RNA sequence: GCAGCGCGGGCUUGGGAGAGCCGCCGGGCUGCACAACAACCGGGACCGGCCUUUGGGAGAGGGACGUUCGCGGUUCGGAUCAGGGGAGAUCAUGGCCGAUGGAGAAUGCCCAGCUCAUCGGACUAUCACGGCAGGUGACGUUGG
Numbered sequence: 001g002c003a004g005c006g007c008g009g010g011c012u013u014g015g016g017a018g019a020g021c022c023g024c025c026g027g028g029c030u031g032c033a034c035a036a037c038a039a040c041c042g043g044g045a046c047c048g049g050c051c052u053u054u055g056g057g058a059g060a061g062g063g064a065c066g067u068u069c070g071c072g073g074u075u076c077g078g079a080u081c082a083g084g085g086g087a088g089a090u091c092a093u094g095g096c097c098g099a100u101g102g103a104g105a106a107u108g109c110c111c112a113g114c115u116c117a118u119c120g121g122a123c124u125a126u127c128a129c130g131g132c133a134g135g136u137g138a139c140g141u142u143g144g
Stems, first nucleotide, its partner, number of pairs: 001032005007026001009022005038075004042069001050063005096121005102116003
flg-Rhizobiales RNA: a 144-nucleotide sequence from Rhodopseudomonas palustris. The source organism's lineage runs through Bacteria, Hyphomicrobiales, Nitrobacteraceae, Rhodopseudomonas and Rhodopseudomonas palustris. The family's consensus secondary structure is taken from published work.